Shown here is a 54-nucleotide RNA sequence from Sinocyclocheilus anshuiensis, a member of the family "Editing element of GABA-3 exon 9". The organism belongs to Sinocyclocheilus, within Eukaryota.
RNA sequence: AAGGUCUCGUACGCCACUGCCAUGGAUUGGUUCAUUGCAGUGUGUUUCGCUUUC
Numbered sequence: 001a002a003g004g005u006c007u008c009g010u011a012c013g014c015c016a017c018u019g020c021c022a023u024g025g026a027u028u029g030g031u032u033c034a035u036u037g038c039a040g041u042g043u044g045u046u047u048c049g050c051u052u053u054c
Stems, first nucleotide, its partner, number of pairs: 002053002008049001011046001013045002015042006022035005